[Rfam]
RNA sequence: GAACUCCAGAAUACUAUGCUCUUUUUAUCAGUGGUUUACAUAGCCAGACAGGAUGCAGAAAAAGCGAGCAGUCUUCCCUUUAAAGUGGUUAUAAUCAUAUGCUAAGUUUUUUCCAUAGCAUAUCAUUAUUAAAGGGAAAUGCAAAG
Dot-bracket structure: (.(.((.......(((((....................))))).......)).).).................((.(((((((........((((.((((((((...........)))))))).)))))))))))..)).......
Numbered sequence: 001g002a003a004c005u006c007c008a009g010a011a012u013a014c015u016a017u018g019c020u021c022u023u024u025u026u027a028u029c030a031g032u033g034g035u036u037u038a039c040a041u042a043g044c045c046a047g048a049c050a051g052g053a054u055g056c057a058g059a060a061a062a063a064g065c066g067a068g069c070a071g072u073c074u075u076c077c078c079u080u081u082a083a084a085g086u087g088g089u090u091a092u093a094a095u096c097a098u099a100u101g102c103u104a105a106g107u108u109u110u111u112u113c114c115a116u117a118g119c120a121u122a123u124c125a126u127u128a129u130u131a132a133a134g135g136g137a138a139a140u141g142c143a144a145a146g
Stems, first nucleotide, its partner, number of pairs: 001056001003054001005052002014043005074139002077135007092128004097123008

Small nucleolar RNA SNORA15: a 146-nucleotide RNA from Catagonus wagneri. From the family's description: ACA15 is a member of the H/ACA class of snoRNA that guide the sites of modification of uridines to pseudouridines. By type it is an H/ACA-box small nucleolar RNA. Its family is annotated with RNA processing and nucleolus in the Gene Ontology. Rfam 15.1 lists 974 matches to the family in 624 species.